[Rfam]
RNA sequence: UUGCAUUCCAUUCGUAUUAGAUAAGCUAGCAAUAAAAAAGCGAUAAAACCAUCCACAAUUGUGGGCUUUUUUGUUGUGCUUACUUUACGAAUUAGGACAUGGAUACUGGUGAGGAAUAGCCUUUGGUGGCUAUCCCUUUUUCCGGCGUGUCUUUUUUUCGUUGAUUAUGCAGACCAAAGCCCGCAUUGCGGACUUGUUGGCCUGCAUUUUUUAU
Numbered sequence: 001u002u003g004c005a006u007u008c009c010a011u012u013c014g015u016a017u018u019a020g021a022u023a024a025g026c027u028a029g030c031a032a033u034a035a036a037a038a039a040g041c042g043a044u045a046a047a048a049c050c051a052u053c054c055a056c057a058a059u060u061g062u063g064g065g066c067u068u069u070u071u072u073g074u075u076g077u078g079c080u081u082a083c084u085u086u087a088c089g090a091a092u093u094a095g096g097a098c099a100u101g102g103a104u105a106c107u108g109g110u111g112a113g114g115a116a117u118a119g120c121c122u123u124u125g126g127u128g129g130c131u132a133u134c135c136c137u138u139u140u141u142c143c144g145g146c147g148u149g150u151c152u153u154u155u156u157u158u159c160g161u162u163g164a165u166u167a168u169g170c171a172g173a174c175c176a177a178a179g180c181c182c183g184c185a186u187u188g189c190g191g192a193c194u195u196g197u198u199g200g201c202c203u204g205c206a207u208u209u210u211u212u213a214u
Stems, first nucleotide, its partner, number of pairs: 006097003010093001012091001013089003019085002022082005029077011042066001049064004098149004102142002105139001111138004116133006167207006174200002177195003181191004
The record is a 214-nucleotide sequence from Acetonema longum, which matches "Enterococcus sRNA 1300" in Rfam. Expressed in mid and late exponential phases of growth. Expression remained uniform under daptomycin exposure. The base pairs follow the family's consensus structure, which was predicted with RNAfold. On this family, see Sinel et al., Sci Rep 2017: "Small RNAs in vancomycin-resistant Enterococcus faecium involved in daptomycin response and resistance". The source organism's lineage runs through Bacteria, Bacillati, Negativicutes, Acetonemataceae and Acetonema longum. Rfam classes the family as a small RNA.